[Rfam]
RNA sequence: CCGGCUUAAACUCAAUGAGUAAGGAAACUAAUGCCCUACCUGACAAGUAGGGCCGCCCAUUGGGUCCAGCGAUCCAUGGGUUUCCAAUUUAUGACGGAGGUGGAAUGGCCGUCGCUUAGGAACCCGCUACUUUAGGGUGACUGACAGGGGGCCGGUCCCCGCC
Numbered sequence: 001c002c003g004g005c006u007u008a009a010a011c012u013c014a015a016u017g018a019g020u021a022a023g024g025a026a027a028c029u030a031a032u033g034c035c036c037u038a039c040c041u042g043a044c045a046a047g048u049a050g051g052g053c054c055g056c057c058c059a060u061u062g063g064g065u066c067c068a069g070c071g072a073u074c075c076a077u078g079g080g081u082u083u084c085c086a087a088u089u090u091a092u093g094a095c096g097g098a099g100g101u102g103g104a105a106u107g108g109c110c111g112u113c114g115c116u117u118a119g120g121a122a123c124c125c126g127c128u129a130c131u132u133u134a135g136g137g138u139g140a141c142u143g144a145c146a147g148g149g150g151g152c153c154g155g156u157c158c159c160c161g162c163c
Base pairs, nucleotide, nucleotide: 005023006022007021008020033053034052035051036050037049038048039047055081056080057079058078059077060076099163100162101161102160103159107157108156109155110154111153115147116146118142119141122138123137124136125135
Shown here is a 163-nucleotide sequence from Phytophthora ramorum, a member of the family "U12 minor spliceosomal RNA". Taxonomically the source falls in Phytophthora (Eukaryota, Oomycota, Peronosporomycetes, Peronosporales). It is one of the family's seed sequences. Its family is annotated with mRNA branch site recognition, U12 snRNP and pre-mRNA branch point binding in the Gene Ontology.